[Rfam]
RNA: c-di-GMP-I riboswitch aptamer
Organism: Butyrivibrio sp. YAB3001
RNA sequence: AAUGUCAUAGGGCAAAAUUAGAGAAAUCUAAUGACGCAAAGCUAUAGGGUCCGAGAGGACAGCCAGUUGCACCU
Numbered sequence: 001a002a003u004g005u006c007a008u009a010g011g012g013c014a015a016a017a018u019u020a021g022a023g024a025a026a027u028c029u030a031a032u033g034a035c036g037c038a039a040a041g042c043u044a045u046a047g048g049g050u051c052c053g054a055g056a057g058g059a060c061a062g063c064c065a066g067u068u069g070c071a072c073c074u
Stems, first nucleotide, its partner, number of pairs: 012037002017032006040068004047064002049060003
Dot-bracket structure: ...........((...((((((....))))))...))..((((...(((((......)))..))))))......